This 78-nucleotide RNA sequence from Lupinus albus belongs to the Rfam family "Small nucleolar RNA Z105". Gene Ontology terms of the family: nucleolus and RNA processing. Lineage of the source: Eukaryota > Streptophytina > genistoids sensu lato > core genistoids > Lupinus.
RNA sequence: UUUGCAUGGUGAUGAAUCUUUUGAUUUUUUUCAUAUGAUUAGUCAUGUGAUGAAAUACAAUCCUCCUACUCAUUCUGA
Numbered sequence: 001u002u003u004g005c006a007u008g009g010u011g012a013u014g015a016a017u018c019u020u021u022u023g024a025u026u027u028u029u030u031u032c033a034u035a036u037g038a039u040u041a042g043u044c045a046u047g048u049g050a051u052g053a054a055a056u057a058c059a060a061u062c063c064u065c066c067u068a069c070u071c072a073u074u075c076u077g078a
Base pairs, nucleotide, nucleotide: 006073007072008071009070028054029053032049033048034047035046036045037044